[Rfam]
RNA sequence: UAAAAAGGCUAGGGGUGCCAAUUUAAAUUGGCUGAGAGAAGCUAUACUUGCUUUAACUCUUUUAACCUGAUGUGGCUAAUACCACCGUAGGGAAGCAAUAAGUAAAUUUA
Numbered sequence: 001u002a003a004a005a006a007g008g009c010u011a012g013g014g015g016u017g018c019c020a021a022u023u024u025a026a027a028u029u030g031g032c033u034g035a036g037a038g039a040a041g042c043u044a045u046a047c048u049u050g051c052u053u054u055a056a057c058u059c060u061u062u063u064a065a066c067c068u069g070a071u072g073u074g075g076c077u078a079a080u081a082c083c084a085c086c087g088u089a090g091g092g093a094a095g096c097a098a099u100a101a102g103u104a105a106a107u108u109u110a
Stems, first nucleotide, its partner, number of pairs: 008096003011060004017032005039053004066091004072085004
This 110-nucleotide RNA sequence from Clostridium puniceum belongs to the Rfam family "TPP riboswitch aptamer (THI element)". The family's consensus secondary structure is taken from published work. NCBI's taxonomy places the organism under Bacteria, Bacillati, Bacillota, Eubacteriales, Clostridium. Its family is annotated with thiamine pyrophosphate binding in the Gene Ontology.